[Rfam]
RNA sequence: AGCUUUGCGCAGUGGCAGUAUCGUAGCCAAUGAGGUUUAUCCGAGGCGCAAUUAUUGCUAAUUGAGAAUCGAGCCCUUUAGAAUUCUGGGGCUCGGGUCUCUCCAUGGGAAGAUUACCAACUCGUUGG
Numbered sequence: 001a002g003c004u005u006u007g008c009g010c011a012g013u014g015g016c017a018g019u020a021u022c023g024u025a026g027c028c029a030a031u032g033a034g035g036u037u038u039a040u041c042c043g044a045g046g047c048g049c050a051a052u053u054a055u056u057g058c059u060a061a062u063u064g065a066g067a068a069u070c071g072a073g074c075c076c077u078u079u080a081g082a083a084u085u086c087u088g089g090g091g092c093u094c095g096g097g098u099c100u101c102u103c104c105a106u107g108g109g110a111a112g113a114u115u116a117c118c119a120a121c122u123c124g125u126u127g128g
Stems, first nucleotide, its partner, number of pairs: 020052002023049002026047003034042002084109003087105005117128004
A member of the RNA family "U4 spliceosomal RNA" from Phocoena sinus, 128 nucleotides long. For this family Rfam cites "Crystal structure of the spliceosomal 15.5kD protein bound to a U4 snRNA fragment" (Vidovic et al., Mol Cell, 2000). By type it is a spliceosomal small nuclear RNA. Taxonomically the source falls in Phocoena (Eukaryota, Chordata, Theria, Phocoenidae).